[Rfam]
RNA sequence: GUUCCAGUGAGAUAUGUUUGAUAUUCUUGGUUGUUUCAUUCAAAAGUUCACCCAGGAAUCAAACAUAUUAUUACUGUGAC
Dot-bracket structure: ....(((((.((((((((((((.((...((.((...............)).)).)).))))))))))))..)))))....
RNA: mir-190 microRNA precursor family
Organism: Drosophila melanogaster